[Rfam]
RNA sequence: CCAAAGGCUCUUUUAAGAGCCACCCACUUCUUCCUGUAAAAGAGCU
Numbered sequence: 001c002c003a004a005a006g007g008c009u010c011u012u013u014u015a016a017g018a019g020c021c022a023c024c025c026a027c028u029u030c031u032u033c034c035u036g037u038a039a040a041a042g043a044g045c046u
Base pairs, nucleotide, nucleotide: 006021007020008019009018010017011016
Record summary
Shown here is a 46-nucleotide sequence from Piprites chloris, a member of the family "Histone 3' UTR stem-loop". About the family: The mRNAs of metazoan histone genes lack a poly-A tail. 3' end processing occurs at a site between a highly conserved stem-loop (modelled by this family) and a purine rich region around 20 nts downstream (the histone downstream element, or HDE). The stem-loop is bound by a 31 kDa stem-loop binding protein (SLBP - also termed the histone hairpin binding protein, or HBP). Together with U7 snRNA binding of the HDE, SLBP binding nucleate s the formation of the processing complex. It is annotated as a cis-regulatory element. Gene Ontology term of the family: mRNA 3'-end processing by stem-loop binding and cleavage. Lineage of the source: Eukaryota > Eumetazoa > Chordata > Archosauria > Piprites.